[Rfam]
mir-7583 microRNA precursor family: a 59-nucleotide RNA from Caenorhabditis briggsae. The family's consensus secondary structure was predicted with RNAalifold. Gene Ontology terms of the family: RISC complex and miRNA-mediated post-transcriptional gene silencing. The family has 4 seed sequences and 38 matches in Rfam 15.1. The source organism's lineage runs through Eukaryota, Eumetazoa, Chromadorea, Rhabditomorpha and Caenorhabditis.

RNA sequence: AGUUAGAAAUCUCGUGAUGGCAUUACAAGAUGUUCUUGCCAUCCGACAUUUUUGGUUGA
Dot-bracket structure: ((((((((((.(((.(((((((..((.....))...)))))))))).))))))))))..